[Rfam]
RNA sequence: AAUAUAAAAAUAGAGCAGGCGAUACACCUAAUAAGGUGUGUGGGGCUGGGCCGACGAAAGUUGGCAACAGGUGAAAAAUACCUGUGGGACUAUA
Numbered sequence: 001a002a003u004a005u006a007a008a009a010a011u012a013g014a015g016c017a018g019g020c021g022a023u024a025c026a027c028c029u030a031a032u033a034a035g036g037u038g039u040g041u042g043g044g045g046c047u048g049g050g051c052c053g054a055c056g057a058a059a060g061u062u063g064g065c066a067a068c069a070g071g072u073g074a075a076a077a078a079u080a081c082c083u084g085u086g087g088g089a090c091u092a093u094a
Stems, first nucleotide, its partner, number of pairs: 010093004016088001018047003022041006050065005067085006
Dot-bracket structure: .........((((..(.(((.((((((........))))))...)))..(((((......))))).((((((.......))))))..).)))).

Shown here is a 94-nucleotide RNA sequence from Acetivibrio cellulolyticus, a member of the family "NiCo (Nickel/Cobalt) riboswitch aptamer". The organism belongs to Acetivibrio cellulolyticus, within Bacteria. Rfam's curators put it in the seed alignment. A reference for the family is Furukawa et al. (2015), "Bacterial riboswitches cooperatively bind Ni(2+) or Co(2+) ions and control expression of heavy metal transporters", Mol Cell.